This 68-nucleotide RNA from Macaca mulatta belongs to the Rfam family "U7 small nuclear RNA". The organism belongs to Macaca, within Eukaryota. Rfam 15.1 lists 10,439 matches to the family in 569 species. The match comes from Rfam's covariance-model search (45 bits). Rfam describes the family as follows. Animal histone pre-mRNAs are spliced by a different mechanism than nuclear pre-mRNAs and self-splicing introns. This processing involves the U7 snRNP, which contains only one RNA species: U7. The 5' end of U7 RNA is thought to base-pair to a conserved spacer element downstream of the cleavage site in histone pre-mRNA. This family contains a number of annotated U7 pseudogenes.
[Rfam]
RNA sequence: GACAGUUACAGCUCUUUUACAAUUUGUCUUGCAGGCUGUUUUUGUUUUUUUUUAAUCAGAAAGCCUCC
Numbered sequence: 001g002a003c004a005g006u007u008a009c010a011g012c013u014c015u016u017u018u019a020c021a022a023u024u025u026g027u028c029u030u031g032c033a034g035g036c037u038g039u040u041u042u043u044g045u046u047u048u049u050u051u052u053u054a055a056u057c058a059g060a061a062a063g064c065c066u067c068c
Stems, first nucleotide, its partner, number of pairs: 034065004040061004044056003